RNA sequence: UGGCUUAUGAUGAUAAAUUUAUUAUAUCUUAGCGGAUUUCAGUGAGAUGAAAAUCAAUGAUCUGAUUGUUACACACACUGAAGCCU
Numbered sequence: 001u002g003g004c005u006u007a008u009g010a011u012g013a014u015a016a017a018u019u020u021a022u023u024a025u026a027u028c029u030u031a032g033c034g035g036a037u038u039u040c041a042g043u044g045a046g047a048u049g050a051a052a053a054u055c056a057a058u059g060a061u062c063u064g065a066u067u068g069u070u071a072c073a074c075a076c077a078c079u080g081a082a083g084c085c086u
Base pairs, nucleotide, nucleotide: 002085003084004083005082